Overview
Shown here is a 138-nucleotide RNA from Collinsella sp. zg1085, a member of the family "FMN riboswitch aptamer (RFN element)". A search with the family's covariance model found it, with a score of 92 bits. Rfam's curators write: The RFN element is a highly conserved domain that is found frequently in the 5'-untranslated regions of prokaryotic mRNAs that encode for flavin mononucleotide (FMN) biosynthesis and transport proteins. This element is a metabolite-dependent riboswitch that directly binds FMN in the absence of proteins. In Bacillus subtilis, the riboswitch most likely controls gene expression by causing premature transcription termination within the 5' untranslated region of the ribDEAHT operon and precluding access to the ribosome-binding site of ypaA mRNA.The FMN riboswitch structure, reported in present an FMN-bound six-stem junction, adopts a butterfly-like scaffold, stapled together by opposingly directed but nearly identically folded peripheral domains.
RNA sequence: UGUAUGUUUCAAGACGGGGUGCAAUUCCCCACCGGCGGUAGCUGUAUCAACAAACUGAUACAGAAGCCCGCAAGCCAGAGAAGGCCGAUCCGGUACAGUCCGGAGCCGACGGUACAGUCCGGACGGAAGAAACGGAGC
Number, nucleotide and partner (000 for none) at each position: 001u000002g000003u136004a000005u134006g133007u132008u131009u130010c129011a000012a000013g000014a000015c000016g000017g029018g028019g027020u000021g000022c000023a000024a000025u000026u000027c019028c018029c017030c000031a118032c117033c108034g107035g071036c070037g069038g068039u000040a000041g000042c000043u000044g000045u000046a000047u000048c000049a000050a000051c000052a000053a000054a000055c000056u000057g000058a000059u000060a000061c000062a000063g000064a000065a000066g106067c105068c038069c037070g036071c035072a000073a000074g085075c084076c083077a000078g000079a000080g000081a000082a000083g076084g075085c074086c000087g000088a000089u104090c103091c102092g101093g100094u000095a000096c000097a000098g000099u000100c093101c092102g091103g090104a089105g067106c066107c034108g033109a000110c121111g120112g119113u000114a000115c000116a000117g032118u031119c112120c111121g110122g000123a000124c000125g000126g000127a000128a000129g010130a009131a008132a007133c006134g005135g000136a003137g000138c000
The base pairs follow the family's consensus structure, which is taken from published work.